[Rfam]
RNA sequence: GGAUCGAUGAUGAUAACAAGUCUCUAAGGACGGUAAUCUACUUGUAACUAAGCCAAUCUGAGCUUC
Numbered sequence: 001g002g003a004u005c006g007a008u009g010a011u012g013a014u015a016a017c018a019a020g021u022c023u024c025u026a027a028g029g030a031c032g033g034u035a036a037u038c039u040a041c042u043u044g045u046a047a048c049u050a051a052g053c054c055a056a057u058c059u060g061a062g063c064u065u066c
Base pairs, nucleotide, nucleotide: 001066002065003064005062
This 66-nucleotide RNA sequence from Mesocricetus auratus belongs to the Rfam family "Small nucleolar RNA SNORD109A". Rfam's curators write: Humans have two copies of the SNORD109 gene, SNORD109A and SNORD109B. A search with the family's covariance model found it, with a score of 36 bits. Pairs were carried over by alignment from the consensus structure, which was predicted with WAR.